[Rfam]
RNA sequence: AUUGGACCGACUUCUGUUGGUGAGAGAGACAAGAUUGAAAGCUUGUCUCUCACCAACAGAAGUCGGUCCAAU
Numbered sequence: 001a002u003u004g005g006a007c008c009g010a011c012u013u014c015u016g017u018u019g020g021u022g023a024g025a026g027a028g029a030c031a032a033g034a035u036u037g038a039a040a041g042c043u044u045g046u047c048u049c050u051c052a053c054c055a056a057c058a059g060a061a062g063u064c065g066g067u068c069c070a071a072u
Stems, first nucleotide, its partner, number of pairs: 001072004005067001007066009017056006026049008
RNA: mir-29 microRNA precursor family
Organism: Chelonoidis abingdonii